RNA sequence: AAUAGAAGGCGAUCGAGGGUUAAAAUUAAUUUUUAAAAUUAUUUUAAUUUUAGGAAAGUCCAUGUUAGCACAUACUUAAAGGAAUGUAUGUAGUGUUUGUGUCUAAGAAAAAAAUAACUUAGAGUACCUUAAAUUUAUUAGGUAACGGCUUUUUCAAUUCUAAGGACUAUAUAUAAUACAAACAAUAGUUUAUGAAAAGAAAAAAUAAAGUGCCACAGAGACGAGAUAAUUAUAAAUAAUUAUGUGAAACGCGGUAAACCCCUCAAGCUAACAACCCAAAAUAUGGUAGGGGCAUAUGAGAAUUAAUAAUUCCUUUUGAAAAAUAAAGUUAAUUUUUAUACUAUUUUUUUAAAAAAUAGAGAUAAAUGAUCGCACUUGUUAAAAAAACAAGAACAGAACAUGGCUUAUGCAU
Numbered sequence: 001a002a003u004a005g006a007a008g009g010c011g012a013u014c015g016a017g018g019g020u021u022a023a024a025a026u027u028a029a030u031u032u033u034u035a036a037a038a039u040u041a042u043u044u045u046a047a048u049u050u051u052a053g054g055a056a057a058g059u060c061c062a063u064g065u066u067a068g069c070a071c072a073u074a075c076u077u078a079a080a081g082g083a084a085u086g087u088a089u090g091u092a093g094u095g096u097u098u099g100u101g102u103c104u105a106a107g108a109a110a111a112a113a114a115u116a117a118c119u120u121a122g123a124g125u126a127c128c129u130u131a132a133a134u135u136u137a138u139u140a141g142g143u144a145a146c147g148g149c150u151u152u153u154u155c156a157a158u159u160c161u162a163a164g165g166a167c168u169a170u171a172u173a174u175a176a177u178a179c180a181a182a183c184a185a186u187a188g189u190u191u192a193u194g195a196a197a198a199g200a201a202a203a204a205a206u207a208a209a210g211u212g213c214c215a216c217a218g219a220g221a222c223g224a225g226a227u228a229a230u231u232a233u234a235a236a237u238a239a240u241u242a243u244g245u246g247a248a249a250c251g252c253g254g255u256a257a258a259c260c261c262c263u264c265a266a267g268c269u270a271a272c273a274a275c276c277c278a279a280a281a282u283a284u285g286g287u288a289g290g291g292g293c294a295u296a297u298g299a300g301a302a303u304u305a306a307u308a309a310u311u312c313c314u315u316u317u318g319a320a321a322a323a324u325a326a327a328g329u330u331a332a333u334u335u336u337u338a339u340a341c342u343a344u345u346u347u348u349u350u351a352a353a354a355a356a357u358a359g360a361g362a363u364a365a366a367u368g369a370u371c372g373c374a375c376u377u378g379u380u381a382a383a384a385a386a387a388c389a390a391g392a393a394c395a396g397a398a399c400a401u402g403g404c405u406u407a408u409g410c411a412u
Stems, first nucleotide, its partner, number of pairs: 004412001007408001009373006016051011056406003060403005065271005070091006097266003101262001102123006124146001125144005147261002150204004158196003164191007210259002212255003226243007275291003295340013341359006375391006
RNA: Bacterial RNase P class B